[Rfam]
Annotation: A member of the RNA family "Purine riboswitch aptamer" from Clostridium sp. FS41, 96 nucleotides long. NCBI's taxonomy places the organism under Bacteria, Bacillota, Clostridia, Clostridiaceae, Clostridium. It scores 49 bits against the family's covariance model.
RNA sequence: AACUAAAACCGUUGCAAUGCCUGUAUAAGUUCAUAAUCGGAUGAACGUUUCUACCAGCUACCGGAAUAGUUGACUACAUGCUUCUAUUUUGUAUAC
Numbered sequence: 001a002a003c004u005a006a007a008a009c010c011g012u013u014g015c016a017a018u019g020c021c022u023g024u025a026u027a028a029g030u031u032c033a034u035a036a037u038c039g040g041a042u043g044a045a046c047g048u049u050u051c052u053a054c055c056a057g058c059u060a061c062c063g064g065a066a067u068a069g070u071u072g073a074c075u076a077c078a079u080g081c082u083u084c085u086a087u088u089u090u091g092u093a094u095a096c
Stems, first nucleotide, its partner, number of pairs: 019081002022078004029046006055072006